Background: Shown here is a 304-nucleotide sequence from Mikania micrantha, a member of the family "Plant signal recognition particle RNA". The match comes from Rfam's covariance-model search (212 bits). NCBI's taxonomy places the organism under Eukaryota, Embryophyta, Pentapetalae, Eupatorieae, Mikania.
RNA sequence: ACCGGGCUUGGUAGCGCUUGCCUGUAACUCGAGCGAGGGUAUGAGGACCGUUGGACGGUGAAACGAUUCUGGUUGGUUGGCUUCCCUGAAGCGUCAACUGGCUUGCCCGUUCCAAGUUGCGAGUGAAUCAUGUGGCUUGAGCGAAGGCUUGGGUCUUGUGGUUCCUAGCGUAGGGGGCACUGCGUAAGGCUGGUUUCACAGAGCUGCGAAAACCCCUCUCUCACGACAGUGGAAGGAUAACAGGCCGGGUCUUCAUGGAUCCACUAUAACCUCCUGAGUCGCUUCAAAACGAACAACCAUCUUU
Numbered sequence: 001a002c003c004g005g006g007c008u009u010g011g012u013a014g015c016g017c018u019u020g021c022c023u024g025u026a027a028c029u030c031g032a033g034c035g036a037g038g039g040u041a042u043g044a045g046g047a048c049c050g051u052u053g054g055a056c057g058g059u060g061a062a063a064c065g066a067u068u069c070u071g072g073u074u075g076g077u078u079g080g081c082u083u084c085c086c087u088g089a090a091g092c093g094u095c096a097a098c099u100g101g102c103u104u105g106c107c108c109g110u111u112c113c114a115a116g117u118u119g120c121g122a123g124u125g126a127a128u129c130a131u132g133u134g135g136c137u138u139g140a141g142c143g144a145a146g147g148c149u150u151g152g153g154u155c156u157u158g159u160g161g162u163u164c165c166u167a168g169c170g171u172a173g174g175g176g177g178c179a180c181u182g183c184g185u186a187a188g189g190c191u192g193g194u195u196u197c198a199c200a201g202a203g204c205u206g207c208g209a210a211a212a213c214c215c216c217u218c219u220c221u222c223a224c225g226a227c228a229g230u231g232g233a234a235g236g237a238u239a240a241c242a243g244g245c246c247g248g249g250u251c252u253u254c255a256u257g258g259a260u261c262c263a264c265u266a267u268a269a270c271c272u273c274c275u276g277a278g279u280c281g282c283u284u285c286a287a288a289a290c291g292a293a294c295a296a297c298c299a300u301c302u303u304u
Base pairs, nucleotide, nucleotide: 001040002039003038004023005022006021007020010017028037029036030035043304044303045302046301047300050297051296052295053294056291057290059287061284062283064281065280066279068277069276071274072273075271076270077269078268079262080261082259083258084257088254089253090252091251093250094249098248099247100246101245102244103243104242105241107236108235110234111233112232113231114230116227117226118225119224121222122221123220125164126163127162128161129160130159131158132157134155135154136153137152138151139150140149141148142147165170172217173216174215175214176213181210183208184207185206190201191200192199